[Rfam]
RNA sequence: CUAUAUCAUAGCCAGAAGGCGAACACCCCAAGGGGUGUCGUUCAGUGCAUGAUUUAAAGGGGCUCAUUCCCUUGCCGAAAGGCAAAAAAUUGAAUUACUGCAAAGGCAGCUAGUAGCAAUUGCGAAAGAUGUCACGUGCAG
Numbered sequence: 001c002u003a004u005a006u007c008a009u010a011g012c013c014a015g016a017a018g019g020c021g022a023a024c025a026c027c028c029c030a031a032g033g034g035g036u037g038u039c040g041u042u043c044a045g046u047g048c049a050u051g052a053u054u055u056a057a058a059g060g061g062g063c064u065c066a067u068u069c070c071c072u073u074g075c076c077g078a079a080a081g082g083c084a085a086a087a088a089a090u091u092g093a094a095u096u097a098c099u100g101c102a103a104a105g106g107c108a109g110c111u112a113g114u115a116g117c118a119a120u121u122g123c124g125a126a127a128g129a130u131g132u133c134a135c136g137u138g139c140a141g
Stems, first nucleotide, its partner, number of pairs: 005053005011048002018042001020040003024037005073084004098141005105133004110128001116123002
A member of the RNA family "RT-14 RNA" from Caloramator australicus, 141 nucleotides long. The organism belongs to Caloramator australicus, within Bacteria. It is one of the family's seed sequences.